[Rfam]
RNA: Purine riboswitch aptamer
Organism: Halalkalibacter suaedae
RNA sequence: AACAAAAAACGAAAUAGACCUCAUAUAAAAUUGGAAAUAUGGUCCAAAAGUUUCUACCCAGUUACCGUAAAUAACUGGACUAUGAGGGAAAGUGGUUGCAUG
Numbered sequence: 001a002a003c004a005a006a007a008a009a010c011g012a013a014a015u016a017g018a019c020c021u022c023a024u025a026u027a028a029a030a031u032u033g034g035a036a037a038u039a040u041g042g043u044c045c046a047a048a049a050g051u052u053u054c055u056a057c058c059c060a061g062u063u064a065c066c067g068u069a070a071a072u073a074a075c076u077g078g079a080c081u082a083u084g085a086g087g088g089a090a091a092g093u094g095g096u097u098g099c100a101u102g
Stems, first nucleotide, its partner, number of pairs: 019087007031047005058078007